RNA sequence: GUCUUCCGCAGCGAAGAGCUGCGGCCUCAUUGAAGC
Numbered sequence: 001g002u003c004u005u006c007c008g009c010a011g012c013g014a015a016g017a018g019c020u021g022c023g024g025c026c027u028c029a030u031u032g033a034a035g036c
Stems, first nucleotide, its partner, number of pairs: 006024007
RNA: CRISPR RNA direct repeat element